The record is a 110-nucleotide RNA sequence from Oryza sativa, which matches "MIR1428 microRNA precursor family" in Rfam.
The family has 7 seed sequences and 96 matches in Rfam 15.1.
The family's consensus secondary structure was predicted with RNAalifold.
For this family Rfam cites "Characterization and expression profiles of miRNAs in rice seeds" (Xue et al., Nucleic Acids Res, 2009).
Its family is annotated with RISC complex and miRNA-mediated post-transcriptional gene silencing in the Gene Ontology.
The sequence is in the family's curated seed alignment.
[Rfam]
RNA sequence: GCGCUUGGCGAAUUCACAGGCCCUAUCUUGUGGUAUGAACUGGGUACGCGAUGAUUUGCACUGCGUAUUGGGGGCUUACCAUAAGAUAAUGCCAUGAAUUUGUCAAGCGU
Numbered sequence: 001g002c003g004c005u006u007g008g009c010g011a012a013u014u015c016a017c018a019g020g021c022c023c024u025a026u027c028u029u030g031u032g033g034u035a036u037g038a039a040c041u042g043g044g045u046a047c048g049c050g051a052u053g054a055u056u057u058g059c060a061c062u063g064c065g066u067a068u069u070g071g072g073g074g075c076u077u078a079c080c081a082u083a084a085g086a087u088a089a090u091g092c093c094a095u096g097a098a099u100u101u102g103u104c105a106a107g108c109g110u
Base pairs, nucleotide, nucleotide: 002109003108004107005106006105007104008103009102010101011100012099013098014097015096016095019093020092021091024088025087026086027085028084029083030082031081032080033079034078035077037075040072041071043069044068045067046066048064049063050062